[Rfam]
RNA sequence: ACGGAGUAAGCCGAAAAUCCGAUAAAAAGUAGGCA
Numbered sequence: 001a002c003g004g005a006g007u008a009a010g011c012c013g014a015a016a017a018u019c020c021g022a023u024a025a026a027a028a029g030u031a032g033g034c035a
Stems, first nucleotide, its partner, number of pairs: 002021004010034003